The record is a 119-nucleotide RNA sequence from Tamaricihabitans halophyticus, which matches "Actinobacteria sRNA Ms_IGR-7" in Rfam. The match comes from Rfam's covariance-model search (46 bits).
[Rfam]
RNA sequence: CGAAAGUGCCUUCCGCAGCAGAGACGACUUGGGCCUAGACAAUCCACAUUGUCCCUGCACAGAAGGCACUUUCUCUAUUCACCACGCCGAACGGUCAACCACCCGGUCCACGGAUCAAG
Numbered sequence: 001c002g003a004a005a006g007u008g009c010c011u012u013c014c015g016c017a018g019c020a021g022a023g024a025c026g027a028c029u030u031g032g033g034c035c036u037a038g039a040c041a042a043u044c045c046a047c048a049u050u051g052u053c054c055c056u057g058c059a060c061a062g063a064a065g066g067c068a069c070u071u072u073c074u075c076u077a078u079u080c081a082c083c084a085c086g087c088c089g090a091a092c093g094g095u096c097a098a099c100c101a102c103c104c105g106g107u108c109c110a111c112g113g114a115u116c117a118a119g
Stems, first nucleotide, its partner, number of pairs: 002073012019057003023053001025051003030046001032044002101115001103113003
By type it is a small RNA.
For this family Rfam cites "Identification of small RNAs in Mycobacterium smegmatis using heterologous Hfq" (Li et al., RNA, 2013).